[Rfam]
RNA sequence: GACGGAAACUUCCCAAGGGAUCGCAUCGAUCCAAUAUCAAAUAUCUAAACUCACCAUGUUGAUUUGGUUGAUUAGAUCAAUGCGAUCCCUUUGGAAGCCUCCAC
Numbered sequence: 001g002a003c004g005g006a007a008a009c010u011u012c013c014c015a016a017g018g019g020a021u022c023g024c025a026u027c028g029a030u031c032c033a034a035u036a037u038c039a040a041a042u043a044u045c046u047a048a049a050c051u052c053a054c055c056a057u058g059u060u061g062a063u064u065u066g067g068u069u070g071a072u073u074a075g076a077u078c079a080a081u082g083c084g085a086u087c088c089c090u091u092u093g094g095a096a097g098c099c100u101c102c103a104c
Base pairs, nucleotide, nucleotide: 004102005101006100009097010096011095012094013093015091016090017089018088019087020086021085023083024082025081026079028078029077030076031075
Rfam assigns this 104-nucleotide sequence from Prunus dulcis to the family "mir-393 microRNA precursor family".
Taxonomically the source falls in Prunus (Eukaryota, Viridiplantae, Streptophyta, Spermatophyta).
A reference for the family is Kruszka et al. (2012), "Role of microRNAs and other sRNAs of plants in their changing environments", J Plant Physiol.